[Rfam]
RNA sequence: UGACUCCCGCCUGGGUAAUCGUGCGCCGCGAGCCCAGUAUCGAGCCUUGCGGCGUGGCUGGUAACAGCCGCGUCGAUGCGUAGGCACGAAAGCAGGCGAGGUGCAAGGGUAACGGGUGAUGCCGACCUUGAAGGUGUUGAGCCCCGAAAAUUUUCGCGUUGGGAGUGCCGACGGGCUUGUCCCUCCGGCAGGCAACAAUCCGUGCUGCAUUCUGGCGAGCGGCAUGGGUACUCCCCGGGGUCCGAGGCCG
Numbered sequence: 001u002g003a004c005u006c007c008c009g010c011c012u013g014g015g016u017a018a019u020c021g022u023g024c025g026c027c028g029c030g031a032g033c034c035c036a037g038u039a040u041c042g043a044g045c046c047u048u049g050c051g052g053c054g055u056g057g058c059u060g061g062u063a064a065c066a067g068c069c070g071c072g073u074c075g076a077u078g079c080g081u082a083g084g085c086a087c088g089a090a091a092g093c094a095g096g097c098g099a100g101g102u103g104c105a106a107g108g109g110u111a112a113c114g115g116g117u118g119a120u121g122c123c124g125a126c127c128u129u130g131a132a133g134g135u136g137u138u139g140a141g142c143c144c145c146g147a148a149a150a151u152u153u154u155c156g157c158g159u160u161g162g163g164a165g166u167g168c169c170g171a172c173g174g175g176c177u178u179g180u181c182c183c184u185c186c187g188g189c190a191g192g193c194a195a196c197a198a199u200c201c202g203u204g205c206u207g208c209a210u211u212c213u214g215g216c217g218a219g220c221g222g223c224a225u226g227g228g229u230a231c232u233c234c235c236c237g238g239g240g241u242c243c244g245a246g247g248c249c250g
Stems, first nucleotide, its partner, number of pairs: 012036004019031004024217003038091001040089002044085004048080002050075011138244001139242001141241006161235006167193003172187004198229011
Group II catalytic intron D1-D4-6: a 250-nucleotide sequence from Thiorhodococcus minor.
Rfam describes the family as follows. Group II introns are found in rRNA, tRNA and mRNA of organelles in fungi, plants and protists, and also in mRNA in bacteria.
The match comes from Rfam's covariance-model search (141 bits).
A reference for the family is Bonen and Vogel (2001), "The ins and outs of group II introns", Trends Genet.